[Rfam]
RNA sequence: CAAAUAUAAUCGCUGAGUUCUAUGUACUAGAAGCGGGGGAACCAAAGCAAUUGAUGAGAGUAUGAUCUACAUUCAUCAAGAGCAUGGGGUGAAUCGGUCGCUAAAUAAGCGACUGUAGGGAAGCUCUCUGUCCCGAAUCCGUCAGCUAACUCCGUAAGCGAACAUGAGGAGAGAA
Numbered sequence: 001c002a003a004a005u006a007u008a009a010u011c012g013c014u015g016a017g018u019u020c021u022a023u024g025u026a027c028u029a030g031a032a033g034c035g036g037g038g039g040a041a042c043c044a045a046a047g048c049a050a051u052u053g054a055u056g057a058g059a060g061u062a063u064g065a066u067c068u069a070c071a072u073u074c075a076u077c078a079a080g081a082g083c084a085u086g087g088g089g090u091g092a093a094u095c096g097g098u099c100g101c102u103a104a105a106u107a108a109g110c111g112a113c114u115g116u117a118g119g120g121a122a123g124c125u126c127u128c129u130g131u132c133c134c135g136a137a138u139c140c141g142u143c144a145g146c147u148a149a150c151u152c153c154g155u156a157a158g159c160g161a162a163c164a165u166g167a168g169g170a171g172a173g174a175a
Stems, first nucleotide, its partner, number of pairs: 011160004018032003033155006043086002087140003095115006118134004
RNA: c-di-AMP riboswitch aptamer (ydaO/yuaA leader)
Organism: Pristimantibacillus lignocellulolyticus